[Rfam]
RNA sequence: GUCAGAGUAGGUAUUACGCGUUAAGUGUUGAGGGAUGGGAAGUUGCCCUCAAACGAAGAAUAGUAAAACAUACUAUUCGCGGUGUAAUAUUGCAUCCGCUGUC
Numbered sequence: 001g002u003c004a005g006a007g008u009a010g011g012u013a014u015u016a017c018g019c020g021u022u023a024a025g026u027g028u029u030g031a032g033g034g035a036u037g038g039g040a041a042g043u044u045g046c047c048c049u050c051a052a053a054c055g056a057a058g059a060a061u062a063g064u065a066a067a068a069c070a071u072a073c074u075a076u077u078c079g080c081g082g083u084g085u086a087a088u089a090u091u092g093c094a095u096c097c098g099c100u101g102u103c
Stems, first nucleotide, its partner, number of pairs: 001103001003101003010091009019081003025054002028052007038097003042093001058078008
Shown here is a 103-nucleotide RNA from Alkaliphilus sp. B6464, a member of the family "THF (Tetrahydrofolate) riboswitch aptamer".
About the family: Tetrahydrofolate (THF) riboswitch was first reported for Ames et al. as an RNA motif in 5' untranslated (5'-UTR)regions of folate transport and biosynthesis genes in Firmicutes genomes.
Its family is annotated with tetrahydrofolate metabolic process in the Gene Ontology.
A search with the family's covariance model found it, with a score of 79 bits.
The literature on the family includes a 2010 paper in Chem Biol by Ames et al., "A eubacterial riboswitch class that senses the coenzyme tetrahydrofolate".